[Rfam]
RNA sequence: GGCCUCAAGUGAUGGAGACAUGACCCUGGGAGGCCCAUGACCGAACUGUCUGUAUUCGUACUGUCUGAUGGGGUC
Number, nucleotide and partner (000 for none) at each position: 001g075002g074003c073004c072005u071006c070007a069008a000009g000010u000011g065012a064013u063014g062015g061016a000017g000018a059019c058020a056021u000022g000023a053024c052025c000026c048027u000028g047029g046030g000031a000032g000033g042034c000035c000036c000037a000038u000039g000040a000041c000042c033043g000044a000045a000046c029047u028048g026049u000050c000051u000052g024053u023054a000055u000056u020057c000058g019059u018060a000061c015062u014063g013064u012065c011066u000067g000068a000069u007070g006071g005072g004073g003074u002075c001

Description:
The record is a 75-nucleotide RNA from Rattus norvegicus, which matches "Small nucleolar RNA ZL2" in Rfam. The source organism's lineage runs through Eukaryota, Sarcopterygii, Glires, Murinae and Rattus.